[Rfam]
RNA sequence: UUUGUUAAGAAUUUGAUCCUGGUUCAGGGUGAAUGCUAGCGGCGUGCCUAAGGUAUGCAAGUCAAACUCGCGCAAGCGGGUGGCGAACGGCUGAGUAAUACGUAGGAAUCUACCUCUAAGUAAGGCAUAGCCCGCCGAAAGGCGGGGUAAUUCCUUAUGUGAUGGCAACAUCAAAGAUUUAUCGCUUAGAGAUGAGCCUACGGCCUAUCAGGUAGUUGGUUGGGUAAAUGCCUACCAAGCCUAUGACGGGUAGCUGGUAUAAGAGUAUGACCAGCCAGAGGGGCACUGAGACACGGGCCUCACCCCUACGGGGGGCAGCAAUCGGGAAUUUUGCGCAAUGGGCGAAAGCCUGACGCAGCGACGCCGCGUGAAGGAUUAAGGCCUUCGGGUUGUAAACUUCGUUGUAAGCACCGGCUAACUACGUGCCAGCAGCAGCGGUCAUACGUAGGGUGCAAGCAUUACCCGGUCUUAUUG
Numbered sequence: 001u002u003u004g005u006u007a008a009g010a011a012u013u014u015g016a017u018c019c020u021g022g023u024u025c026a027g028g029g030u031g032a033a034u035g036c037u038a039g040c041g042g043c044g045u046g047c048c049u050a051a052g053g054u055a056u057g058c059a060a061g062u063c064a065a066a067c068u069c070g071c072g073c074a075a076g077c078g079g080g081u082g083g084c085g086a087a088c089g090g091c092u093g094a095g096u097a098a099u100a101c102g103u104a105g106g107a108a109u110c111u112a113c114c115u116c117u118a119a120g121u122a123a124g125g126c127a128u129a130g131c132c133c134g135c136c137g138a139a140a141g142g143c144g145g146g147g148u149a150a151u152u153c154c155u156u157a158u159g160u161g162a163u164g165g166c167a168a169c170a171u172c173a174a175a176g177a178u179u180u181a182u183c184g185c186u187u188a189g190a191g192a193u194g195a196g197c198c199u200a201c202g203g204c205c206u207a208u209c210a211g212g213u214a215g216u217u218g219g220u221u222g223g224g225u226a227a228a229u230g231c232c233u234a235c236c237a238a239g240c241c242u243a244u245g246a247c248g249g250g251u252a253g254c255u256g257g258u259a260u261a262a263g264a265g266u267a268u269g270a271c272c273a274g275c276c277a278g279a280g281g282g283g284c285a286c287u288g289a290g291a292c293a294c295g296g297g298c299c300u301c302a303c304c305c306c307u308a309c310g311g312g313g314g315g316c317a318g319c320a321a322u323c324g325g326g327a328a329u330u331u332u333g334c335g336c337a338a339u340g341g342g343c344g345a346a347a348g349c350c351u352g353a354c355g356c357a358g359c360g361a362c363g364c365c366g367c368g369u370g371a372a373g374g375a376u377u378a379a380g381g382c383c384u385u386c387g388g389g390u391u392g393u394a395a396a397c398u399u400c401g402u403u404g405u406a407a408g409c410a411c412c413g414g415c416u417a418a419c420u421a422c423g424u425g426c427c428a429g430c431a432g433c434a435g436c437g438g439u440c441a442u443a444c445g446u447a448g449g450g451u452g453c454a455a456g457c458a459u460u461a462c463c464c465g466g467u468c469u470u471a472u473u474g
Base pairs, nucleotide, nucleotide: 009025010024011023012022013021027464028463029462030461032460033459034458035457036456037455039367040366041365042364043363044362045360046359047325052323053322054321056320057319058318061084062083063082066081067080068079069078070077071076091278092277093276101202102201103200104199105198106197109195110194114191115190116189117188118187119186120185122156123155124154125153131146132145133144134143135142136141162171163170164169176183177182204250205249206248211241212240213239216238217237218236219235220234222232223231253275254274255273256272257268258267259266260265280301281300282299283298284297303314304313305312306311331357333356334355335354339352340351341350342349343348370400371399372398373397380391381390382389383388408453409452410451411450412449419448420447421446422445423444429436430435
A member of the RNA family "Bacterial small subunit ribosomal RNA" from an uncultured candidate division WWE3 bacterium, 474 nucleotides of a longer RNA. Its family is annotated with structural constituent of ribosome and ribosome in the Gene Ontology. Pairs were carried over by alignment from the consensus structure, which is taken from published work. The family is grouped with related families in Rfam's "SSU clan".